The record is an 83-nucleotide RNA sequence, which matches "Flavo-1 RNA" in Rfam. It scores 46 bits against the family's covariance model.
[Rfam]
RNA sequence: UUCUAGCCCCGAUGGUAGCAUUUGUUUGAGCUCUUUUUUCUUUGAAAAAAGAAAAAAAGCGAGUGCGGACAGCGGGAAAUAGC
Numbered sequence: 001u002u003c004u005a006g007c008c009c010c011g012a013u014g015g016u017a018g019c020a021u022u023u024g025u026u027u028g029a030g031c032u033c034u035u036u037u038u039u040c041u042u043u044g045a046a047a048a049a050a051g052a053a054a055a056a057a058a059g060c061g062a063g064u065g066c067g068g069a070c071a072g073c074g075g076g077a078a079a080u081a082g083c
Stems, first nucleotide, its partner, number of pairs: 009075003013071002018066002030060003036055008